The record is a 74-nucleotide RNA sequence from Treponema ruminis, which matches "tRNA" in Rfam. Transfer RNA (tRNA) molecules are approximately 80 nucleotides in length. Rfam classes the family as a transfer RNA. The family's consensus secondary structure is taken from published work. The organism belongs to Treponema, within Bacteria. Clan: tRNA clan.
RNA sequence: GCGGGGUUAGCUCAGUUGGUUAGAGCAUCACGUUGACAUCGUGGGGGUCAGUAGUUCGAAUCUACUAUUCCGCA
Numbered sequence: 001g002c003g004g005g006g007u008u009a010g011c012u013c014a015g016u017u018g019g020u021u022a023g024a025g026c027a028u029c030a031c032g033u034u035g036a037c038a039u040c041g042u043g044g045g046g047g048u049c050a051g052u053a054g055u056u057c058g059a060a061u062c063u064a065c066u067a068u069u070c071c072g073c074a
Base pairs, nucleotide, nucleotide: 001073002072003071004070005069006068007067010026011025012024013023028044029043030042031041032040050066051065052064053063054062